RNA sequence: GUCGAGCUUGGUAACGCGGGCUUGUGACCCGAGUGGGGACAUGAAAGUGUUGGAACAUGGUCUCAGCCCAUGUAGUCGGGUCUAUGGUUGGCUCUUAACUGGCUUGCCCAUUCCAAGCGAGGAGUUGGCCCAUGAGGCUCAAGUGAAGACUUGUGGUUUCAUGGGCCUUAGAGUGGGAGAGACAGCGUGAGGCUGGUUUCACAGAGCAACGAUAACUUCCCUCUCUUGGCAGUGGAAGGAUAACAGGCCGUUGCCCCCUGGGCCCAAUGUGUCUAGAUGAGCUGCGACGUCAUUGGACCAACACUUUU
Dot-bracket structure: ((((((((((......)))))))....(((....))))))..(((((((((((..(((((((.(((..(((.(((.((((((((..(..((.(......(((((((.((.(((((.((.(((((..((((((((((((((((((....))))).)))))))))))))(....).(((((....(.(((....(((......)))....))).)..)))))..))))).))..)))))))....)))))))..))).).))))))).....).))).)))..))).))..))).))..)))))))))))
A member of the RNA family "Plant signal recognition particle RNA" from Tripterygium wilfordii, 308 nucleotides long. Rfam 15.1 lists 4,988 matches to the family in 266 species. NCBI's taxonomy places the organism under Eukaryota, Streptophyta, Celastrales, Celastraceae, Tripterygium. The base pairs follow the family's consensus structure, which is taken from published work. The family's RNA type in Rfam is non-coding RNA gene.